[Rfam]
This 249-nucleotide sequence from Gossypium trilobum belongs to the Rfam family "RNase MRP". RNase MRP is an enzymatically active ribonucleoprotein with two distinct roles in eukaryotes. In mitochondria it plays a direct role in the initiation of mitochondrial DNA replication. In the nucleus it is involved in precursor rRNA processing, where it cleaves the internal transcribed spacer 1 between 18S and 5.8S rRNAs. Despite distinct functions, RNase MRP has been shown to be evolutionarily related to RNase P. Like eukaryotic RNase P, RNase MRP is not catalytically active without associated protein subunits. The organism belongs to Gossypium, within Eukaryota.
RNA sequence: CAACUACGAGACGAAGUGAAUGGGUCAUGACCAUAGCUUCGGACCCAGGAAAGUCCCCGGGCCGCUAUCUGCAGAGAUGCAGGCUCGGAAAUGAGUAUUAAUCUUUGAGUGGAGGUGGUCUGUCGCAAAACAGGGCUGAGACAAGUGUGGAGCCGAUGACCUCUUCGCCAAAGCAAGUUAACCGAAUCUCACAGUUAUUCACUUGGUUCUUCACAGGACUAACCGAACGGGGCUUAUGAUCUCGUAGUU
Number, nucleotide and partner (000 for none) at each position: 001c000002a249003a248004c247005u246006a245007c244008g243009a242010g241011a240012c000013g000014a204015a203016g202017u201018g200019a199020a000021u000022g000023g045024g044025u043026c000027a000028u000029g000030a000031c000032c000033a000034u000035a000036g000037c000038u000039u000040c000041g000042g000043a025044c024045c023046c000047a000048g000049g000050a000051a235052a234053g233054u000055c232056c231057c230058c229059g000060g000061g000062c000063c000064g000065c000066u000067a000068u000069c000070u081071g080072c079073a078074g000075a000076g000077a000078u073079g072080c071081a070082g000083g096084c095085u094086c093087g092088g000089a000090a000091a000092u087093g086094a085095g084096u083097a000098u000099u176100a000101a000102u000103c000104u000105u172106u171107g000108a000109g168110u167111g166112g165113a164114g163115g000116u000117g000118g000119u000120c000121u000122g160123u159124c158125g157126c000127a000128a000129a000130a000131c000132a000133g000134g000135g000136c000137u000138g000139a000140g000141a000142c000143a000144a000145g153146u152147g000148u000149g000150g000151a000152g146153c145154c000155g000156a000157u125158g124159a123160c122161c000162u000163c114164u113165u112166c111167g110168c109169c000170a000171a106172a105173g000174c000175a000176a099177g000178u000179u000180a000181a000182c000183c000184g000185a000186a000187u000188c000189u000190c000191a000192c000193a000194g000195u000196u000197a000198u000199u019200c018201a017202c016203u015204u014205g000206g219207u218208u217209c216210u215211u000212c000213a000214c000215a210216g209217g208218a207219c206220u000221a000222a000223c000224c000225g000226a000227a000228c000229g058230g057231g056232g055233c053234u052235u051236a000237u000238g000239a000240u011241c010242u009243c008244g007245u006246a005247g004248u003249u002